[Rfam]
RNA: UnaL2 LINE 3' element
Nucleotides: 054
Base pairs, nucleotide, nucleotide: 013043014041015040016039020036021035022034023033024032025031
Number, partner (000 for none) and nucleotide at each position: 001000c002000u003000u004000a005000g006000u007000u008000c009000c010000u011000c012000c013043u014041g015040u016039a017000a018000a019000u020036c021035g022034c023033u024032c025031u026000g027000g028000a029000u030000a031025a032024g033023a034022g035021u036020g037000u038000c039016u040015g041014c042000u043013a044000a045000a046000u047000g048000a049000c050000u051000c052000a053000a054000a